[Rfam]
RNA: U1 spliceosomal RNA
Organism: Callithrix jacchus
RNA sequence: GAACUUAUCUGGCAGGGGAGAUACCAUGAUCAUGAAGGUGGUUUUCCCAGGGCGAGGCUUAUUCAUUGCACUCCAGAUGUGCUGACCCCUGUGAUUUCCCCAAAUGUGGGAAACUCAACUGCAUUAUUUGUGGUAGUGGGGGACUGCGAUCAUGCUUUCCCCUG
Numbered sequence: 001g002a003a004c005u006u007a008u009c010u011g012g013c014a015g016g017g018g019a020g021a022u023a024c025c026a027u028g029a030u031c032a033u034g035a036a037g038g039u040g041g042u043u044u045u046c047c048c049a050g051g052g053c054g055a056g057g058c059u060u061a062u063u064c065a066u067u068g069c070a071c072u073c074c075a076g077a078u079g080u081g082c083u084g085a086c087c088c089c090u091g092u093g094a095u096u097u098c099c100c101c102a103a104a105u106g107u108g109g110g111a112a113a114c115u116c117a118a119c120u121g122c123a124u125u126a127u128u129u130g131u132g133g134u135a136g137u138g139g140g141g142g143a144c145u146g147c148g149a150u151c152a153u154g155c156u157u158u159c160c161c162c163u164g
Base pairs, nucleotide, nucleotide: 012122013121014120015119016048017047018046019045020044021043023042024041025040026039027038049090050089051088052087054086056083057082058081060079061078062077063076092117093116094115095113096112097111099109100108138163139162140161141160142159143158146155147154148153
Dot-bracket structure: ...........((((((((((.(((((..........)))))))))))((((.(.(((.((((............)))).)))..))))).((((((.((.......)).))).))).))))...............((((((..(((....)))..)))))).